[Rfam]
About this RNA:
Rfam assigns this 48-nucleotide RNA to the family "Na+ riboswitch aptamer (DUF1646)". A reference for the family is White et al. (2022), "Na(+) riboswitches regulate genes for diverse physiological processes in bacteria", Nat Chem Biol. The sequence is in the family's curated seed alignment. The base pairs follow the family's consensus structure, which is taken from published work.

RNA sequence: GGUUGGGCAGGAAACUGCUUCAAGUCUGAGCUUUAAGGGUGGGAAGCU
Numbered sequence: 001g002g003u004u005g006g007g008c009a010g011g012a013a014a015c016u017g018c019u020u021c022a023a024g025u026c027u028g029a030g031c032u033u034u035a036a037g038g039g040u041g042g043g044a045a046g047c048u
Stems, first nucleotide, its partner, number of pairs: 003023003006019005029048006